[Rfam]
RNA sequence: GUCAAACGACAGGGGAGCGCCUGCCUACCGGGUGCUGAGAGUGCACACGCAGACCCUCGAACCUGAUCCGGUUAGUACCGGCGCUAGGGAGUCGAAAUCUACCGGCA
Numbered sequence: 001g002u003c004a005a006a007c008g009a010c011a012g013g014g015g016a017g018c019g020c021c022u023g024c025c026u027a028c029c030g031g032g033u034g035c036u037g038a039g040a041g042u043g044c045a046c047a048c049g050c051a052g053a054c055c056c057u058c059g060a061a062c063c064u065g066a067u068c069c070g071g072u073u074a075g076u077a078c079c080g081g082c083g084c085u086a087g088g089g090a091g092u093c094g095a096a097a098u099c100u101a102c103c104g105g106c107a
Stems, first nucleotide, its partner, number of pairs: 007094004011057004017035007042051003062088004068081004
TPP riboswitch aptamer (THI element): a 107-nucleotide RNA from Rothia nasimurium. From the family's description: Vitamin B(1) in its active form thiamin pyrophosphate (TPP) is an essential coenzyme that is synthesised by coupling of pyrimidine and thiazole moieties in bacteria. The previously detected thiamin-regulatory element, thi box was extended, resulting in a new, highly conserved RNA secondary structure, the THI element, which is widely distributed in eubacteria and also occurs in some archaea. Analysis of operon structures identified a large number of new candidate thiamin-regulated genes, mostly transporters, in various prokaryotic organisms. The THI element is a riboswitch that directly binds to TPP to regulate gene expression through a variety of mechanisms in archaea, bacteria and eukaryotes. through a variety of mechanisms in archaea, bacteria and eukaryotes. Tandem TPP riboswitches have been reported where both TPP riboswitches respond independently to TPP. The structure of TPP riboswitch has been reported for Escherichia coli and Arabidopsis thaliana. The source organism's lineage runs through Bacteria, Bacillati, Micrococcales, Micrococcaceae and Rothia. A search with the family's covariance model found it, with a score of 60 bits.